[Rfam]
RNA sequence: UCGUCGAGGCCGGAUCGUCUUCUCACCCCUCACGCGGGCGGGCGGAACGAAGGAGACCCCCGCGAGGACAGGACUCGCGGGGGUCUGCC
Numbered sequence: 001u002c003g004u005c006g007a008g009g010c011c012g013g014a015u016c017g018u019c020u021u022c023u024c025a026c027c028c029c030u031c032a033c034g035c036g037g038g039c040g041g042g043c044g045g046a047a048c049g050a051a052g053g054a055g056a057c058c059c060c061c062g063c064g065a066g067g068a069c070a071g072g073a074c075u076c077g078c079g080g081g082g083g084u085c086u087g088c089c
Stems, first nucleotide, its partner, number of pairs: 001045003005042001008039001010037002013031002017027001052088001054086013

Description
sodF sRNA: an 89-nucleotide RNA sequence from Streptomyces naganishii. The literature on the family includes a 2014 paper in Nucleic Acids Res by Kim et al., "Inverse regulation of Fe- and Ni-containing SOD genes by a Fur family regulator Nur through small RNA processed from 3'UTR of the sodF mRNA". Gene Ontology terms of the family: mRNA binding, regulation of mRNA stability and negative regulation of translation. The match comes from Rfam's covariance-model search (55 bits).